[Rfam]
The record is a 94-nucleotide sequence from Dioscorea zingiberensis, which matches "Small nucleolar RNA R64/Z200 family" in Rfam. The family has 14 seed sequences and 748 matches in Rfam 15.1. The family's RNA type in Rfam is C/D-box small nucleolar RNA. Gene Ontology terms of the family: nucleolus and RNA processing.

RNA sequence: UUGCUGCCGUGAUGAAUUAAUGAAAUCAUGAUUCGCAUGUCAGACUUCAGAGAUCUACAGAUCAAUGAGAAGAGAUUUCAUUGUUCUGAGCCAA
Dot-bracket structure: (((..((............................................((((....))))..........................)))))

The organism belongs to Dioscorea, within Eukaryota. The family's consensus secondary structure was predicted with PFOLD. On this family, see Galardi et al., Mol Cell Biol 2002: "Purified box C/D snoRNPs are able to reproduce site-specific 2'-O-methylation of target RNA in vitro".